RNA: FMN riboswitch aptamer (RFN element)
Organism: Fictibacillus macauensis
RNA sequence: GGCCGUCUUCGGGGUCGGGUGAAAUUCCCAACCGGCGGUGAUGAGGCAAAGUGCCUCUUAGUCCGUGACCCGGCUGUGCAUUCGCAUAGACGGUGGAUCUGGUGCAACUCCAGAGCCGACAGUAUAGUCUGGAUGGGAGAAGGAAUGU
Dot-bracket structure: .....(((((......(((.......))).[[((((((......................[[))))...((....................))....(((((.......)))))]])).(((....]]))).......))))).....